[Rfam]
RNA sequence: CCGCGCUCCGCAGGAGAGUAGGCUUGUAAGCCCCGCCGAAGGCGCAACCUCCCAUAAACGCUCAGGCACAUGUACUGCGGGCACCAU
Numbered sequence: 001c002c003g004c005g006c007u008c009c010g011c012a013g014g015a016g017a018g019u020a021g022g023c024u025u026g027u028a029a030g031c032c033c034c035g036c037c038g039a040a041g042g043c044g045c046a047a048c049c050u051c052c053c054a055u056a057a058a059c060g061c062u063c064a065g066g067c068a069c070a071u072g073u074a075c076u077g078c079g080g081g082c083a084c085c086a087u
Stems, first nucleotide, its partner, number of pairs: 007081007021032003035067003038063002042061003
RNA: Glycine riboswitch aptamer